[Rfam]
RNA sequence: UCGGCCCCGGUUCACGCUCGUCGCAACCCGCGGAAGCGACCCGGAGCC
Numbered sequence: 001u002c003g004g005c006c007c008c009g010g011u012u013c014a015c016g017c018u019c020g021u022c023g024c025a026a027c028c029c030g031c032g033g034a035a036g037c038g039a040c041c042c043g044g045a046g047c048c
Base pairs, nucleotide, nucleotide: 003048004047005046007044008043009042010041015038016037017036018035021033022032023031

Annotation: Shown here is a 48-nucleotide sequence from Streptomyces griseoluteus, a member of the family "L31-Actinobacteria ribosomal protein leader". The family's consensus secondary structure is taken from published work. Rfam classes the family as a cis-regulatory leader. Rfam's curators put it in the seed alignment.